RNA sequence: UGGCUCAAUUUCCUGGGGGGUGGGUUCAGUCUACUCCACCUCCCCUCAGCUGAGCCUAGAACAGAGGGACCAGGCAUCCCAACGUGGGGGAGGCGUUUUAAGUAAGGAGCCUCCCUGGGCUGUCCUAGCCUCACAUUU
Numbered sequence: 001u002g003g004c005u006c007a008a009u010u011u012c013c014u015g016g017g018g019g020g021u022g023g024g025u026u027c028a029g030u031c032u033a034c035u036c037c038a039c040c041u042c043c044c045c046u047c048a049g050c051u052g053a054g055c056c057u058a059g060a061a062c063a064g065a066g067g068g069a070c071c072a073g074g075c076a077u078c079c080c081a082a083c084g085u086g087g088g089g090g091a092g093g094c095g096u097u098u099u100a101a102g103u104a105a106g107g108a109g110c111c112u113c114c115c116u117g118g119g120c121u122g123u124c125c126u127a128g129c130c131u132c133a134c135a136u137u138u
Stems, first nucleotide, its partner, number of pairs: 002056006015044010066132003070128001072126003078119003087113003